[Rfam]
RNA sequence: GGCCAGUGUUGAGAGGCGGAGACUGGAGCAAUUGCUGGGUUUCCCAUGAAGCAUUGCACUUGUCUCGGUCCGACAGUGCUGGUA
Number, nucleotide and partner (000 for none) at each position: 001g000002g083003c082004c081005a000006g079007u078008g077009u076010u000011g000012a000013g000014a000015g070016g069017c068018g000019g066020a065021g064022a063023c062024u000025g000026g000027a000028g057029c056030a055031a054032u053033u000034g052035c051036u050037g045038g044039g000040u000041u000042u000043c000044c038045c037046a000047u000048g000049a000050a036051g035052c034053a032054u031055u030056g029057c028058a000059c000060u000061u000062g023063u022064c021065u020066c019067g000068g017069u016070c015071c000072g000073a000074c000075a000076g009077u008078g007079c006080u000081g004082g003083u002084a000
mir-25 microRNA precursor family: an 84-nucleotide sequence from Chiloscyllium punctatum.
The family's consensus secondary structure was predicted with RNAalifold.
NCBI's taxonomy places the organism under Eukaryota, Opisthokonta, Metazoa, Galeoidea, Chiloscyllium.
Gene Ontology terms of the family: miRNA-mediated post-transcriptional gene silencing and RISC complex.